[Rfam]
Background
Shown here is a 331-nucleotide RNA from Penicillium occitanis, a member of the family "A. fumigatus sRNA Afu_309". The literature on the family includes a 2008 paper in Nucleic Acids Res by Jochl et al., "Small ncRNA transcriptome analysis from Aspergillus fumigatus suggests a novel mechanism for regulation of protein synthesis". The match comes from Rfam's covariance-model search (199 bits). Rfam 15.1 lists 663 matches to the family in 646 species.

RNA sequence: CAUCACAAAAUUUACACAGGUCUGUGUUCAGCGAUCCUGGCCAGUUUGUUUCUAACAAGCUGUGAUCGGUUGAUUUCUGAGCAGUUCGACGACAAAGGAGCCAUCCUACAGUUUUUUAAAAGCUGCUAUGGUGUCAAUUUCCUGUCGACAGAUCUGAGAUCGAUGUACAGCUCUCAACACCCUUUGGCUUCGAGCUCCCUUUCUCUUUAUGAGGUUGGUGAAUUCAGUUGGAGGAUUGGGUUGCUGUCGGCGUCAUAUUCCCACUCCCUUUACUGAUCUUUUUGGCCGUCGGCUGAUGAGGUUAGGGAAAAACCAUGACUAGCCAACAUUC
Numbered sequence: 001c002a003u004c005a006c007a008a009a010a011u012u013u014a015c016a017c018a019g020g021u022c023u024g025u026g027u028u029c030a031g032c033g034a035u036c037c038u039g040g041c042c043a044g045u046u047u048g049u050u051u052c053u054a055a056c057a058a059g060c061u062g063u064g065a066u067c068g069g070u071u072g073a074u075u076u077c078u079g080a081g082c083a084g085u086u087c088g089a090c091g092a093c094a095a096a097g098g099a100g101c102c103a104u105c106c107u108a109c110a111g112u113u114u115u116u117u118a119a120a121a122g123c124u125g126c127u128a129u130g131g132u133g134u135c136a137a138u139u140u141c142c143u144g145u146c147g148a149c150a151g152a153u154c155u156g157a158g159a160u161c162g163a164u165g166u167a168c169a170g171c172u173c174u175c176a177a178c179a180c181c182c183u184u185u186g187g188c189u190u191c192g193a194g195c196u197c198c199c200u201u202u203c204u205c206u207u208u209a210u211g212a213g214g215u216u217g218g219u220g221a222a223u224u225c226a227g228u229u230g231g232a233g234g235a236u237u238g239g240g241u242u243g244c245u246g247u248c249g250g251c252g253u254c255a256u257a258u259u260c261c262c263a264c265u266c267c268c269u270u271u272a273c274u275g276a277u278c279u280u281u282u283u284g285g286c287c288g289u290c291g292g293c294u295g296a297u298g299a300g301g302u303u304a305g306g307g308a309a310a311a312a313c314c315a316u317g318a319c320u321a322g323c324c325a326a327c328a329u330u331c
Base pairs, nucleotide, nucleotide: 018155019154020153021152022151023150024149025148026082027081028080029079030078031077033075034074035073036072037069038068039067040066041064043061044060045059046058047057048056050055090147091146092145093144094143097135098134100132101131102130103129104128168243169242173240174239175238176237177236186229187228188227189226192225193224194223196221197220198218199217249324250323251322252319253318254317255316256315265308266307267306268305269304272302273301274300284294285293286292287291